[Rfam]
Overview:
A member of the RNA family "RAGATH-18 RNA" from Clostridium grantii, 64 nucleotides long. Pairs were carried over by alignment from the consensus structure, which is taken from published work. Actinobacteria, Firmicutes, Fusobacteria, Thermotogae (1 example). It scores 69 bits against the family's covariance model.
RNA sequence: CCCUAGGAGUGUUACAUAAAACGAAAGUAGCUUUAUAGCAAAAUCGUACACGAUGAACAGGGAA
Numbered sequence: 001c002c003c004u005a006g007g008a009g010u011g012u013u014a015c016a017u018a019a020a021a022c023g024a025a026a027g028u029a030g031c032u033u034u035a036u037a038g039c040a041a042a043a044u045c046g047u048a049c050a051c052g053a054u055g056a057a058c059a060g061g062g063a064a
Stems, first nucleotide, its partner, number of pairs: 001062004009051004022046003030039003